[Rfam]
RNA sequence: UAAUCCACAGGGCCGUCCCACAAACGGUCCGGGAGCCGGGGAACCACCGUUCCUUGGGGUGAAUCGGACCGGCCCAGGCCGGUCCGUAGGAGACCUUCCUACUCCGAACCCGUCAGCUAACCCGGUAGGCGAGAGGGAAGGAAAGG
Number, nucleotide and partner (000 for none) at each position: 001u000002a000003a000004u034005c033006c032007a000008c000009a000010g000011g000012g000013c000014c000015g000016u000017c000018c000019c000020a000021c000022a000023a000024a000025c000026g000027g000028u000029c000030c000031g000032g006033g005034a004035g126036c125037c124038g123039g122040g121041g000042a000043a000044c000045c056046a055047c000048c000049g000050u000051u000052c000053c000054u000055u046056g045057g111058g110059g109060u000061g000062a000063a000064u000065c086066g085067g084068a083069c082070c081071g080072g000073c000074c000075c000076a000077g000078g000079c000080c071081g070082g069083u068084c067085c066086g065087u000088a000089g105090g104091a103092g102093a000094c000095c000096u000097u000098c000099c000100u000101a000102c092103u091104c090105c089106g000107a000108a000109c059110c058111c057112g000113u000114c000115a000116g000117c000118u000119a000120a000121c040122c039123c038124g037125g036126u035127a000128g000129g000130c000131g000132a000133g000134a000135g000136g000137g000138a000139a000140g000141g000142a000143a000144a000145g000146g000
This 146-nucleotide RNA from Streptomyces tateyamensis belongs to the Rfam family "c-di-AMP riboswitch aptamer (ydaO/yuaA leader)". It scores 84 bits against the family's covariance model.